[Rfam]
Nucleotides: 035
Base pairs, nucleotide, nucleotide: 003020004019005018010034011033012032
Number, partner (000 for none) and nucleotide at each position: 001000a002000u003020g004019g005018a006000g007000c008000u009000a010034g011033c012032c013000g014000a015000a016000a017000a018005u019004c020003c021000u022000a023000u024000a025000a026000a027000g028000a029000g030000u031000a032012g033011g034010c035000a